[Rfam]
RNA sequence: GCGCACGAGUGCCACGCGGUCUCUGCCCGGACGCGGACCCUGACGUACUUCCCCGACGCCAGGUGCCGGAGUUCGGUCAGAGACCCCGGGGCAUUCGUAAUCCGUA
Numbered sequence: 001g002c003g004c005a006c007g008a009g010u011g012c013c014a015c016g017c018g019g020u021c022u023c024u025g026c027c028c029g030g031a032c033g034c035g036g037a038c039c040c041u042g043a044c045g046u047a048c049u050u051c052c053c054c055g056a057c058g059c060c061a062g063g064u065g066c067c068g069g070a071g072u073u074c075g076g077u078c079a080g081a082g083a084c085c086c087c088g089g090g091g092c093a094u095u096c097g098u099a100a101u102c103c104g105u106a
Base pairs, nucleotide, nucleotide: 010093011092012091013090015088016087018085019084021082022081023080024079025078027076028075029074030073031072032071034068035067036066039063040062041061042060044058045057046056
This 106-nucleotide RNA sequence from Nocardia gamkensis belongs to the Rfam family "mraW RNA". Rfam classes the family as a cis-regulatory element. Lineage of the source: Bacteria > Bacillati > Actinomycetota > Nocardiaceae > Nocardia. The family has 45 seed sequences and 851 matches in Rfam 15.1.